[Rfam]
RNA: algC RNA
RNA sequence: AUCAAUUUGGCCAUUUAGUGGUCAGGGCCGACUGUUGCCUGAAAAAGGGGUCA
Numbered sequence: 001a002u003c004a005a006u007u008u009g010g011c012c013a014u015u016u017a018g019u020g021g022u023c024a025g026g027g028c029c030g031a032c033u034g035u036u037g038c039c040u041g042a043a044a045a046a047g048g049g050g051u052c053a
Stems, first nucleotide, its partner, number of pairs: 009023005